[Rfam]
RNA sequence: UAGAGCCGUUGAGACAAAUUUGGGGUUUCUUAGCGGCAUUUGCCAGUAUUAGAUUAAUUGCAAUGCCCUUGGAAAUCCCAAAAAUGUUCAAUACAACU
Number, nucleotide and partner (000 for none) at each position: 001u000002a000003g000004a000005g000006c000007c000008g094009u093010u000011g000012a000013g089014a087015c086016a085017a000018a000019u000020u000021u080022g079023g078024g077025g076026u075027u074028u073029c072030u000031u000032a069033g068034c000035g067036g066037c065038a064039u063040u000041u062042g061043c060044c000045a000046g000047u000048a000049u000050u000051a000052g000053a000054u000055u000056a000057a000058u000059u000060g043061c042062a041063a039064u038065g037066c036067c035068c033069u032070u000071g000072g029073a028074a027075a026076u025077c024078c023079c022080a021081a000082a000083a000084a000085u016086g015087u014088u000089c013090a000091a000092u000093a009094c008095a000096a000097c000098u000
A member of the RNA family "mir-2788 microRNA precursor family" from Ceutorhynchus assimilis, 98 nucleotides long.